[Rfam]
RNA: Small nucleolar RNA Z102/R77
Nucleotides: 088
Base pairs, nucleotide, nucleotide: 002087003086005084038058041056042055043054044053
Number, partner (000 for none) and nucleotide at each position: 001000g002087a003086a004000c005084g006000a007000g008000a009000u010000g011000a012000u013000g014000a015000u016000g017000a018000a019000u020000a021000g022000g023000u024000u025000u026000c027000c028000c029000u030000a031000u032000u033000g034000g035000u036000u037000u038058g039000a040000u041056u042055g043054c044053c045000g046000a047000a048000a049000u050000g051000a052000u053044g054043g055042c056041g057000u058038c059000a060000a061000u062000c063000u064000u065000u066000g067000u068000a069000u070000u071000a072000g073000c074000u075000c076000u077000a078000g079000c080000u081000g082000a083000u084005c085000c086003u087002u088000c